[Rfam]
Nucleotides: 167
Stems, first nucleotide, its partner, number of pairs: 007161001009159003016080005023074003033065007084112010095101001113139002116136008141152004
Number, partner (000 for none) and nucleotide at each position: 001000u002000a003000c004000c005000a006000a007161g008000g009159u010158a011157g012000a013000g014000g015000u016080g017079c018078c019077a020076u021000a022000u023074u024073u025072a026000a027000a028000g029000a030000g031000u032000a033065c034064u035063u036062a037061u038060u039059a040000a041000g042000a043000g044000c045000u046000a047000g048000c049000a050000a051000g052000c053000u054000a055000a056000g057000a058000c059039u060038a061037a062036u063035a064034a065033g066000g067000a068000a069000a070000g071000g072025u073024a074023a075000a076020a077019u078018g079017g080016c081000c082000g083000a084112a085111g086110a087109a088108a089107u090106a091105a092104g093103u094000g095101u096000u097000g098000c099000a100000a101095a102000a103093a104092c105091u106090u107089g108088u109087u110086u111085u112084u113139g114138g115000g116136u117135g118134u119133a120132c121131a122130u123129a124000u125000a126000a127000u128000a129123u130122g131121u132120g133119u134118a135117u136116g137000a138114c139113u140000g141152u142151c143150a144149c145000g146000u147000a148000a149144g150143u151142g152141a153000a154000g155000c156000g157011c158010u159009a160000g161007c162000g163000a164000g165000g166000u167000u
This 167-nucleotide RNA from Clostridium gasigenes belongs to the Rfam family "Lysine riboswitch aptamer".